Description
MIR8024 microRNA precursor family: an 87-nucleotide RNA sequence from Solanum tuberosum. It scores 74 bits against the family's covariance model. The base pairs follow the family's consensus structure, which was predicted with RNAalifold. Gene Ontology terms of the family: miRNA-mediated post-transcriptional gene silencing and RISC complex.
[Rfam]
RNA sequence: CUUGAAUAAUUUGAAGACUUCAACUUGCAAACUUAAAGAAUUUAAAGACUUCAACUUGCAUACUUGGAGAUUUUGAAGACUUAAGGC
Numbered sequence: 001c002u003u004g005a006a007u008a009a010u011u012u013g014a015a016g017a018c019u020u021c022a023a024c025u026u027g028c029a030a031a032c033u034u035a036a037a038g039a040a041u042u043u044a045a046a047g048a049c050u051u052c053a054a055c056u057u058g059c060a061u062a063c064u065u066g067g068a069g070a071u072u073u074u075g076a077a078g079a080c081u082u083a084a085g086g087c
Stems, first nucleotide, its partner, number of pairs: 001085005010077006018069005026060004033054002036051003